This 96-nucleotide RNA from Thiobacillus denitrificans belongs to the Rfam family "Bacterial small signal recognition particle RNA". It is one of the family's seed sequences. For this family Rfam cites "Prediction of signal recognition particle RNA genes" (Regalia et al., Nucleic Acids Res, 2002). Clan: SRP clan. The base pairs follow the family's consensus structure, which is taken from published work. Gene Ontology terms of the family: signal recognition particle, plasma membrane targeting and SRP-dependent cotranslational protein targeting to membrane, signal sequence recognition. Taxonomically the source falls in Thiobacillus denitrificans (Bacteria, Nitrosomonadales, Thiobacillaceae, Thiobacillus).
[Rfam]
RNA sequence: GGCGGGCCUCCCCGCAUGGCUAAGUCGUGAAUCGGGUCAGGUCCGGAAGGAAGCAGCCACAGCGAUCCAUGCCAGUGCCGGGGUUCUGGCUCGCCA
Numbered sequence: 001g002g003c004g005g006g007c008c009u010c011c012c013c014g015c016a017u018g019g020c021u022a023a024g025u026c027g028u029g030a031a032u033c034g035g036g037u038c039a040g041g042u043c044c045g046g047a048a049g050g051a052a053g054c055a056g057c058c059a060c061a062g063c064g065a066u067c068c069a070u071g072c073c074a075g076u077g078c079c080g081g082g083g084u085u086c087u088g089g090c091u092c093g094c095c096a
Stems, first nucleotide, its partner, number of pairs: 004092005010083005015075001017074004024066005035058003042051003